[Rfam]
RNA: Soft rot Enterobacteriaceae Rev 39 5'UTR
RNA sequence: AAAAGUUGUGUUAUAAGCCCUAACUGUGAUAACUCUGUAGGCAUUACUUCGAACAAACGAAAAAUUGAAAAGCCAAUGAAAGCCCUUCUAUCUGUGAUUAGCCUAGUCGUGAUUAGCGUGGUGGUGAUUAUUAUCACACCGUGCGGGGCUACGCUUGGAGAAAGAAAGGCUUAAAAAUCAAGUCUGAAUUCAAAAAAACCCCCGCACCGAAAGGUCCGGGGGUUUUUUUUCGACCAGACAUAACAAUAGCGAAUGACAGAGGAACAAACUAUGAACAGUAGCAUAAAAUACUGUUGUUCCCGGCGAGAG
Numbered sequence: 001a002a003a004a005g006u007u008g009u010g011u012u013a014u015a016a017g018c019c020c021u022a023a024c025u026g027u028g029a030u031a032a033c034u035c036u037g038u039a040g041g042c043a044u045u046a047c048u049u050c051g052a053a054c055a056a057a058c059g060a061a062a063a064a065u066u067g068a069a070a071a072g073c074c075a076a077u078g079a080a081a082g083c084c085c086u087u088c089u090a091u092c093u094g095u096g097a098u099u100a101g102c103c104u105a106g107u108c109g110u111g112a113u114u115a116g117c118g119u120g121g122u123g124g125u126g127a128u129u130a131u132u133a134u135c136a137c138a139c140c141g142u143g144c145g146g147g148g149c150u151a152c153g154c155u156u157g158g159a160g161a162a163a164g165a166a167a168g169g170c171u172u173a174a175a176a177a178u179c180a181a182g183u184c185u186g187a188a189u190u191c192a193a194a195a196a197a198a199c200c201c202c203c204g205c206a207c208c209g210a211a212a213g214g215u216c217c218g219g220g221g222g223u224u225u226u227u228u229u230u231c232g233a234c235c236a237g238a239c240a241u242a243a244c245a246a247u248a249g250c251g252a253a254u255g256a257c258a259g260a261g262g263a264a265c266a267a268a269c270u271a272u273g274a275a276c277a278g279u280a281g282c283a284u285a286a287a288a289u290a291c292u293g294u295u296g297u298u299c300c301c302g303g304c305g306a307g308a309g
Stems, first nucleotide, its partner, number of pairs: 005033005012026001016021001037077002040074003044068003048064001049060002084262003088255001092249002098243003101239001103237002106234001108118003120140004126135003142159001144157004162190002168185002171182002193228012206215003263295004271284003